[Rfam]
RNA: Bacterial large signal recognition particle RNA
RNA sequence: CCGUGCUAGGUGGGGAGGUAGCGGUGCCCUGUACUCGCAAUCCGCUGUAGCGAGACUGAACUCCCAUCCGAGGUGCAUAUUUUUAAGGUCUGCCAUAAAGAAUUGGUGUUGACGUUUGGGUCCUGCGCAACGGGAACCUGUGAACCUUGUCAGAUCCGGAAGGAAGCAGCAAUAAGCAGUGACCUCUCGUGUGCCGCAGGGAAGCCUGGACUGAGCCAUGAAUUUAUGUAACGCUUGGGGUUAUGUUAUCGAAGAUGGGUGCACGG
Number, nucleotide and partner (000 for none) at each position: 001c266002c265003g264004u263005g262006c261007u000008a000009g057010g056011u055012g030013g029014g028015g027016a000017g025018g000019u023020a000021g000022c000023g019024g000025u017026g000027c015028c014029c013030u012031g000032u000033a000034c054035u053036c052037g051038c050039a000040a000041u000042c000043c000044g000045c000046u000047g000048u000049a000050g038051c037052g036053a035054g034055a011056c010057u009058g000059a000060a000061c000062u000063c259064c258065c257066a256067u255068c254069c000070g000071a000072g250073g249074u248075g247076c000077a000078u243079a242080u000081u240082u239083u238084u237085a236086a235087g234088g000089u000090c000091u230092g229093c000094c000095a227096u226097a225098a224099a223100g000101a000102a000103u220104u000105g217106g216107u215108g000109u000110u000111g000112a000113c000114g211115u210116u209117u208118g207119g206120g205121u204122c200123c199124u198125g197126c196127g195128c191129a190130a000131c189132g188133g187134g186135a185136a000137c181138c179139u178140g177141u176142g000143a000144a000145c000146c000147u172148u171149g170150u169151c000152a000153g000154a000155u164156c163157c162158g000159g000160a000161a000162g157163g156164a155165a000166g000167c000168a000169g150170c149171a148172a147173u000174a000175a000176g141177c140178a139179g138180u000181g137182a000183c000184c000185u135186c134187u133188c132189g131190u129191g128192u000193g000194c000195c127196g126197c125198a124199g123200g122201g000202a000203a000204g121205c120206c119207u118208g117209g116210a115211c114212u000213g000214a000215g107216c106217c105218a000219u000220g103221a000222a000223u099224u098225u097226a096227u095228g000229u092230a091231a000232c000233g000234c087235u086236u085237g084238g083239g082240g081241u000242u079243a078244u000245g000246u000247u075248a074249u073250c072251g000252a000253a000254g068255a067256u066257g065258g064259g063260u000261g006262c005263a004264c003265g002266g001